Shown here is a 113-nucleotide sequence from Caballeronia glathei, a member of the family "Burkholderia sRNA Bp1_Cand684_SIPHT". The family has 14 seed sequences and 176 matches in Rfam 15.1.
[Rfam]
RNA sequence: AAGAAAGUGACUGCCGCCCCGCACAGGGGCGAAGCUAAUAGACCAAUAACAAAACAAGUUUCAUAGGAGCGCGAGCGGAUCAAACACCCCUACCCCUUCCACAUGAUAAAAAU
Numbered sequence: 001a002a003g004a005a006a007g008u009g010a011c012u013g014c015c016g017c018c019c020c021g022c023a024c025a026g027g028g029g030c031g032a033a034g035c036u037a038a039u040a041g042a043c044c045a046a047u048a049a050c051a052a053a054a055c056a057a058g059u060u061u062c063a064u065a066g067g068a069g070c071g072c073g074a075g076c077g078g079a080u081c082a083a084a085c086a087c088c089c090c091u092a093c094c095c096c097u098u099c100c101a102c103a104u105g106a107u108a109a110a111a112a113u
Stems, first nucleotide, its partner, number of pairs: 011078004015031006059068002096105001098103001
Pairs were carried over by alignment from the consensus structure, which was predicted with RNAalifold. On this family, see Khoo et al., BMC Genomics 2012: "Computational discovery and RT-PCR validation of novel Burkholderia conserved and Burkholderia pseudomallei unique sRNAs".